The record is a 67-nucleotide RNA from Roseateles puraquae, which matches "int-alpA RNA" in Rfam.
RNA sequence: GUCGCGCCUAGGUUAGCUCCCGAAAACCCGUUUCCCUGACGGGCUGGCGUGGCGGUUCUUUCGGGGG
Numbered sequence: 001g002u003c004g005c006g007c008c009u010a011g012g013u014u015a016g017c018u019c020c021c022g023a024a025a026a027c028c029c030g031u032u033u034c035c036c037u038g039a040c041g042g043g044c045u046g047g048c049g050u051g052g053c054g055g056u057u058c059u060u061u062c063g064g065g066g067g
Base pairs, nucleotide, nucleotide: 001053002052003051004050005049006048007047008046011021012020027043028042029041030040034067035066036065037064
About this RNA:
About the family: Acidobacteria (1 example), Planctomycetes (1 example), Proteobacteria. The match comes from Rfam's covariance-model search (49 bits). The base pairs follow the family's consensus structure, which is taken from published work.